Hepatitis C virus internal ribosome entry site: a 295-nucleotide sequence from Orthohepacivirus hominis.
The base pairs follow the family's consensus structure, which was predicted with RNAfold.
Rfam links the family to the GO term ribosome binding.
[Rfam]
RNA sequence: GUCUUCACGCAGAAAGCGUCUAGCCAUGGCGUUAGUAUGAGUGUCGUGCAGCCUCCAGGACCCCCCCUCCCGGGAGAGCCAUAGUGGUCUGCGGAACCGGUGAGUACACCGGAAUUGCCAGGACGACCGGGUCCUUUCGUGGAUCAACCCGCUCAAUGCCUGGAGAUUUGGGCGUGCCCCCGCGAGACUGCUAGCCGAGUAGUGUUGGGUCGCGAAAGGCCUUGUGGUACUGCCUGAUAGGGUGCUUGCGAGUGCCCCGGGAGGUCUCGUAGACCGUGCAUCAUGAGCACACUUC
Numbered sequence: 001g002u003c004u005u006c007a008c009g010c011a012g013a014a015a016g017c018g019u020c021u022a023g024c025c026a027u028g029g030c031g032u033u034a035g036u037a038u039g040a041g042u043g044u045c046g047u048g049c050a051g052c053c054u055c056c057a058g059g060a061c062c063c064c065c066c067c068u069c070c071c072g073g074g075a076g077a078g079c080c081a082u083a084g085u086g087g088u089c090u091g092c093g094g095a096a097c098c099g100g101u102g103a104g105u106a107c108a109c110c111g112g113a114a115u116u117g118c119c120a121g122g123a124c125g126a127c128c129g130g131g132u133c134c135u136u137u138c139g140u141g142g143a144u145c146a147a148c149c150c151g152c153u154c155a156a157u158g159c160c161u162g163g164a165g166a167u168u169u170g171g172g173c174g175u176g177c178c179c180c181c182g183c184g185a186g187a188c189u190g191c192u193a194g195c196c197g198a199g200u201a202g203u204g205u206u207g208g209g210u211c212g213c214g215a216a217a218g219g220c221c222u223u224g225u226g227g228u229a230c231u232g233c234c235u236g237a238u239a240g241g242g243u244g245c246u247u248g249c250g251a252g253u254g255c256c257c258c259g260g261g262a263g264g265u266c267u268c269g270u271a272g273a274c275c276g277u278g279c280a281u282c283a284u285g286a287g288c289a290c291a292c293u294u295c
Stems, first nucleotide, its partner, number of pairs: 001049002006043003010039002015033006066264009076196001078195002082193009091183004097112006113168003118163005125154002128151004132143003170179003198231004203226002207222005232243004244255002276290004

The family is grouped with related families in Rfam's "IRES1 clan".